[Rfam]
RNA sequence: CACGCCUGCGAGGAUCAAUAGGUCCCAACAGGUCCCUCGGAUCAACCUUACAGUUGGACCUGAGACGAAAGGGUGGUUUUUAUGGAUGUGUUUUGUCCACCCGUCAAAGCCCUCCAUGUCUCUUGCUGGCGAGAGCGUUGGAGAGGAUUCAAAAACUAGUCCAAGUU
Number, nucleotide and partner (000 for none) at each position: 001c000002a000003c000004g000005c000006c000007u030008g029009c000010g000011a000012g026013g025014a000015u000016c021017a000018a000019u000020a000021g016022g000023u000024c000025c013026c012027a000028a000029c008030a007031g000032g000033u000034c000035c067036c064037u063038c062039g061040g060041a000042u057043c000044a000045a000046c000047c000048u053049u000050a000051c000052a000053g048054u000055u000056g000057g042058a000059c000060c040061u039062g038063a037064g036065a000066c000067g035068a000069a000070a000071g000072g000073g000074u000075g000076g000077u000078u000079u000080u000081u000082a000083u000084g000085g161086a160087u159088g156089u155090g000091u154092u153093u152094u151095g150096u000097c000098c000099a000100c000101c000102c000103g000104u000105c000106a000107a000108a000109g000110c146111c145112c143113u142114c141115c140116a000117u000118g000119u000120c135121u134122c133123u132124u131125g130126c000127u000128g000129g000130c125131g124132a123133g122134a121135g120136c000137g000138u000139u000140g115141g114142a113143g112144a000145g111146g110147a000148u000149u000150c095151a094152a093153a092154a091155a089156c088157u000158a000159g087160u086161c085162c000163a000164a000165g000166u000167u000